[Rfam]
RNA sequence: UCGAGGCUCCAUCUAUAAAUGGAUAAUAUUUUAGUUUUUAAGAAGGAUACGAGUUUUUAAAAGUAUAAGGGGGGGGUAAUCUCAACAAUGUUGAGAUUACUCCCCCCUU
Dot-bracket structure: .......(((((......)))))...........................................(((((((((((((.(((.((...)).))).)))))))))))))
Rfam assigns this 109-nucleotide RNA sequence from Cicer arietinum to the family "Plastid-psbA-1 3UTR RNA". By type it is a cis-regulatory element. The source organism's lineage runs through Eukaryota, Tracheophyta, Euphyllophyta, rosids and Cicer. The base pairs follow the family's consensus structure, which was predicted with LocARNA. Rfam's curators write: Plastid psbA-1 is a non-coding RNA (ncRNA) present in plastids. It was identified in inverted repeat sequences in the 3 prime untranslate region (3UTR) of photosystem II quinone-binding protein (psbA).